[Rfam]
RNA sequence: GACUGGACCCAAGGUAGUGAGUUACCUCGAUUGAUGGUUCACAGUCAGUUACAGAUCGAACUCUUUGUUCUACCCUUUUCUCCUUCUUCACUACUGCACUUGACUAGUCUUAA
Numbered sequence: 001g002a003c004u005g006g007a008c009c010c011a012a013g014g015u016a017g018u019g020a021g022u023u024a025c026c027u028c029g030a031u032u033g034a035u036g037g038u039u040c041a042c043a044g045u046c047a048g049u050u051a052c053a054g055a056u057c058g059a060a061c062u063c064u065u066u067g068u069u070c071u072a073c074c075c076u077u078u079u080c081u082c083c084u085u086c087u088u089c090a091c092u093a094c095u096g097c098a099c100u101u102g103a104c105u106a107g108u109c110u111u112a113a
Stems, first nucleotide, its partner, number of pairs: 001109006008102001011100001014097002016092006044074001047071002
RNA: Y RNA